[Rfam]
RNA sequence: AACAAUUUUCGGGGCAGGGUGAAAUUCCCUACCGGCGGUAUAGCCCGCGAGCCAUUUUGGCAUGACUUGGUGAGAUUCCAAGGCCGACAGUAAAGUCUGGAUGUGAGAAAAUUAUU
Dot-bracket structure: ...(((((((......(((.......))).[[((((((....[[))))....(......).....(((((.......)))))]])).(((....]]))).......)))))))...
The record is a 116-nucleotide RNA sequence from Clostridium sulfidigenes, which matches "FMN riboswitch aptamer (RFN element)" in Rfam. A search with the family's covariance model found it, with a score of 120 bits. Its family is annotated with FMN binding in the Gene Ontology. NCBI's taxonomy places the organism under Bacteria, Clostridia, Eubacteriales, Clostridiaceae, Clostridium.